Annotation:
Rfam assigns this 61-nucleotide sequence from Paraburkholderia humisilvae to the family "Fluoride riboswitch aptamer (crcB RNA motif)". Rfam links the family to the GO terms response to fluoride and positive regulation of gene expression. A search with the family's covariance model found it, with a score of 56 bits. The family has 289 seed sequences and 2,293 matches in Rfam 15.1.
RNA sequence: ACGUAGCAGGGAGAUGGCAUUCUCCUUCAACCGCCUCAGGGCUGAUGAUGCCUGCGAGUUU
Numbered sequence: 001a002c003g004u005a006g007c008a009g010g011g012a013g014a015u016g017g018c019a020u021u022c023u024c025c026u027u028c029a030a031c032c033g034c035c036u037c038a039g040g041g042c043u044g045a046u047g048a049u050g051c052c053u054g055c056g057a058g059u060u061u
Stems, first nucleotide, its partner, number of pairs: 010025004016052006033042003